[Rfam]
Rfam assigns this 120-nucleotide sequence from Streptomyces triculaminicus to the family "Streptomyces-metK RNA". The family's consensus secondary structure is taken from published work. A search with the family's covariance model found it, with a score of 100 bits.
RNA sequence: GUGGGGCGGGAUGUCCGAAGCCACAGAACGCCGGAUAAACUGGCUCCGGAUCCGGGUCGAGCGCAGCUCUCGGCAGGAUCCGUCAAAUGAUCAGCCAGCAGCCGCUGCAACCCCAGGGAG
Numbered sequence: 001g002u003g004g005g006g007c008g009g010g011a012u013g014u015c016c017g018a019a020g021c022c023a024c025a026g027a028a029c030g031c032c033g034g035a036u037a038a039a040c041u042g043g044c045u046c047c048g049g050a051u052c053c054g055g056g057u058c059g060a061g062c063g064c065a066g067c068u069c070u071c072g073g074c075a076g077g078a079u080c081c082g083u084c085a086a087a088u089g090a091u092c093a094g095c096c097a098g099c100a101g102c103c104g105c106u107g108c109a110a111c112c113c114c115a116g117g118g119a120g
Stems, first nucleotide, its partner, number of pairs: 048081006056074001058072004096107004